[Rfam]
RNA sequence: ACGGGAUGCUCCUCUUAUGUGAGCUAAAUCACUUCAAACUUUCGACCUCAGUCAGUAUGAUGGUCGAACGAUUAAACCCUCGCCUUCCCCCGGCGAGGGUUUUCUUUUGGA
Numbered sequence: 001a002c003g004g005g006a007u008g009c010u011c012c013u014c015u016u017a018u019g020u021g022a023g024c025u026a027a028a029u030c031a032c033u034u035c036a037a038a039c040u041u042u043c044g045a046c047c048u049c050a051g052u053c054a055g056u057a058u059g060a061u062g063g064u065c066g067a068a069c070g071a072u073u074a075a076a077c078c079c080u081c082g083c084c085u086u087c088c089c090c091c092g093g094c095g096a097g098g099g100u101u102u103u104c105u106u107u108u109g110g111a
Stems, first nucleotide, its partner, number of pairs: 017033001019032004074102011
RNA: Enterobacteria rnk leader
Organism: [Enterobacter] lignolyticus